[Rfam]
RNA sequence: CAAAAGAACCUUGUCAUGAGUGGCACACGUAGAGCAGCUUAAUUGCUCUACGUUUGGAAUUGACAUCAAGAGAUGCAUAAUAUUUUGAUACUUGGGCAGCUGGUGAUCCUUGGUCCUGGUGUCCGC
Numbered sequence: 001c002a003a004a005a006g007a008a009c010c011u012u013g014u015c016a017u018g019a020g021u022g023g024c025a026c027a028c029g030u031a032g033a034g035c036a037g038c039u040u041a042a043u044u045g046c047u048c049u050a051c052g053u054u055u056g057g058a059a060u061u062g063a064c065a066u067c068a069a070g071a072g073a074u075g076c077a078u079a080a081u082a083u084u085u086u087g088a089u090a091c092u093u094g095g096g097c098a099g100c101u102g103g104u105g106a107u108c109c110u111u112g113g114u115c116c117u118g119g120u121g122u123c124c125g126c
Base pairs, nucleotide, nucleotide: 012025013024014023015022016021027053028052029051030050031049032048033047034046035045036044037043059074060073061072094124095123096122097121099120100119101118102117103116105115106114107113108112